The family of this 91-nucleotide RNA from Ectothiorhodospira mobilis is "TPP riboswitch aptamer (THI element)". The source organism's lineage runs through Bacteria, Pseudomonadati, Gammaproteobacteria, Chromatiales and Ectothiorhodospira. Vitamin B(1) in its active form thiamin pyrophosphate (TPP) is an essential coenzyme that is synthesised by coupling of pyrimidine and thiazole moieties in bacteria. The base pairs follow the family's consensus structure, which is taken from published work.

[Rfam]
RNA sequence: AGAAGAAGCUAGGGGUGCCCGUACGGGCUGAGAGACACCCUUGGAACCUGAUCCGGAUCACACCGGCGGAGGGAAGCUUCGGAUGUGCCCG
Dot-bracket structure: .....(((((((((.(((((....))))......)..)))).....(((...((((......))))...)))..)))))............